RNA sequence: UGAAAUUGAAUGAACGCCAUUCAUAUAUCCUCGAUAAUAUGGUUCGAAAGUAUCUACCAGGGCACCGUAAAUGUCCUGACUAUGAAGGCGGAAUAUCUAUAG
Numbered sequence: 001u002g003a004a005a006u007u008g009a010a011u012g013a014a015c016g017c018c019a020u021u022c023a024u025a026u027a028u029c030c031u032c033g034a035u036a037a038u039a040u041g042g043u044u045c046g047a048a049a050g051u052a053u054c055u056a057c058c059a060g061g062g063c064a065c066c067g068u069a070a071a072u073g074u075c076c077u078g079a080c081u082a083u084g085a086a087g088g089c090g091g092a093a094u095a096u097c098u099a100u101a102g
Base pairs, nucleotide, nucleotide: 018088020086021085022084023083024082025081031047032046033045034044058078059077060076061075062074063073064072
Purine riboswitch aptamer: a 102-nucleotide sequence from Lentibacillus cibarius. Taxonomically the source falls in Lentibacillus (Bacteria, Bacillati, Caryophanales, Bacillaceae). Its family is annotated with purine nucleobase biosynthetic process in the Gene Ontology.